[Rfam]
RNA sequence: GGAAUUACCUGGACGGGGUCUGUGGAUGAUCAUGAAGGUCCAUGGCCUAGGUUAGCGACCUCCAUUGCACACUAAGGAGGGGUGCUCGCCUAAGAUCUCCCCAAGAGGGAGAAUCUACGUCAUAAUUUGUUCCUGACGGGGGAAAGCGUCCACGCUGCCCCUUG
Numbered sequence: 001g002g003a004a005u006u007a008c009c010u011g012g013a014c015g016g017g018g019u020c021u022g023u024g025g026a027u028g029a030u031c032a033u034g035a036a037g038g039u040c041c042a043u044g045g046c047c048u049a050g051g052u053u054a055g056c057g058a059c060c061u062c063c064a065u066u067g068c069a070c071a072c073u074a075a076g077g078a079g080g081g082g083u084g085c086u087c088g089c090c091u092a093a094g095a096u097c098u099c100c101c102c103a104a105g106a107g108g109g110a111g112a113a114u115c116u117a118c119g120u121c122a123u124a125a126u127u128u129g130u131u132c133c134u135g136a137c138g139g140g141g142g143a144a145a146g147c148g149u150c151c152a153c154g155c156u157g158c159c160c161c162u163u164g
Stems, first nucleotide, its partner, number of pairs: 012121004016048005023042005049091003053088001055085003059081003062077002093116003096112003100108002138162004145156004
A member of the RNA family "U1 spliceosomal RNA" from Papaver somniferum, 164 nucleotides long. Taxonomically the source falls in Papaver (Eukaryota, Viridiplantae, Ranunculales, Papaveroideae). The family's RNA type in Rfam is spliceosomal small nuclear RNA. The family's consensus secondary structure is taken from published work.